[Rfam]
RNA sequence: UUGUGAUUCCAUUCACUUCGGAUCGUCGGGCACGUACCUGCCCGUGAAAGGAUGCUGCC
Numbered sequence: 001u002u003g004u005g006a007u008u009c010c011a012u013u014c015a016c017u018u019c020g021g022a023u024c025g026u027c028g029g030g031c032a033c034g035u036a037c038c039u040g041c042c043c044g045u046g047a048a049a050g051g052a053u054g055c056u057g058c059c
Stems, first nucleotide, its partner, number of pairs: 009051002012048004027044006
The record is a 59-nucleotide RNA from Paeniglutamicibacter cryotolerans, which matches "msiK RNA" in Rfam. The base pairs follow the family's consensus structure, which is taken from published work. By type it is a cis-regulatory element.